[Rfam]
RNA sequence: UUCUUAUACAGAGAGAUUGAGGGACAGGCCCAAUGACAUCUCAGCAACCGGUUCGCAAGAGUACGGUGCUAAUUCCUGCGGAGUAAUCCGACUAUAAGAA
Numbered sequence: 001u002u003c004u005u006a007u008a009c010a011g012a013g014a015g016a017u018u019g020a021g022g023g024a025c026a027g028g029c030c031c032a033a034u035g036a037c038a039u040c041u042c043a044g045c046a047a048c049c050g051g052u053u054c055g056c057a058a059g060a061g062u063a064c065g066g067u068g069c070u071a072a073u074u075c076c077u078g079c080g081g082a083g084u085a086a087u088c089c090g091a092c093u094a095u096a097a098g099a100a
Stems, first nucleotide, its partner, number of pairs: 001100008013042005021031003025078004043070004048066002050062001052060002079090004

Overview: A member of the RNA family "SAM riboswitch aptamer (S box leader)" from Macrococcoides caseolyticum, 100 nucleotides long. The match comes from Rfam's covariance-model search (77 bits). The SAM riboswitch is found upstream of a number of genes which code for proteins involved in methionine or cysteine biosynthesis in Gram-positive bacteria.